This 66-nucleotide RNA sequence from Serinus canaria belongs to the Rfam family "mir-199 microRNA precursor family". NCBI's taxonomy places the organism under Eukaryota, Saurischia, Telluraves, Fringillidae, Serinus. Gene Ontology terms of the family: RISC complex and miRNA-mediated post-transcriptional gene silencing. From the family's description: This family consists of the microRNA (miRNA) precursor mir-199 which appears to be specific to humans. Animal miRNAs are transcribed as ~70nt precursors and subsequently processed by the Dicer enzyme to give a ~22nt product. In this case the mature sequence comes from the 3' arm of the precursor. The extents of the hairpin precursors are not generally known and are estimated based on hairpin prediction. The products are thought to have regulatory roles through complementarity to mRNA. The involvement of Dicer in miRNA processing suggests a relationship with the phenomenon of RNA interference. miRNAs are numbered based on the sequence of the mature RNA. Pairs were carried over by alignment from the consensus structure, which was predicted with RNAalifold.

[Rfam]
RNA sequence: GUGUUCAGACUACCUGUUCAGGUGGGAAGGGAUGCACAGUAGUCUGCACAUUGGUUACGCCGGCGC
Numbered sequence: 001g002u003g004u005u006c007a008g009a010c011u012a013c014c015u016g017u018u019c020a021g022g023u024g025g026g027a028a029g030g031g032a033u034g035c036a037c038a039g040u041a042g043u044c045u046g047c048a049c050a051u052u053g054g055u056u057a058c059g060c061c062g063g064c065g066c
Base pairs, nucleotide, nucleotide: 001051002050003049004048006046007045008044009043010042011041012040014039015038016037017036019034020033